[Rfam]
RNA: UnaL2 LINE 3' element
Organism: Carassius auratus
RNA sequence: UGUAUUCCCAAUUGUACGUCACUUUGGAUAAAAGCAUCUGCAAAAUGACUAAAU
Numbered sequence: 001u002g003u004a005u006u007c008c009c010a011a012u013u014g015u016a017c018g019u020c021a022c023u024u025u026g027g028a029u030a031a032a033a034g035c036a037u038c039u040g041c042a043a044a045a046u047g048a049c050u051a052a053a054u
Base pairs, nucleotide, nucleotide: 013043014041015040016039022034023033024032025031